[Rfam]
RNA sequence: UGGUCGUAUGUAUGACGUCAUUUACUUCAAUGUUUGGAGUGACAUCAUAUGUACGGCUGCU
Numbered sequence: 001u002g003g004u005c006g007u008a009u010g011u012a013u014g015a016c017g018u019c020a021u022u023u024a025c026u027u028c029a030a031u032g033u034u035u036g037g038a039g040u041g042a043c044a045u046c047a048u049a050u051g052u053a054c055g056g057c058u059g060c061u
Stems, first nucleotide, its partner, number of pairs: 003057008012048004017043001019041003025037002
RNA: mir-489 microRNA precursor family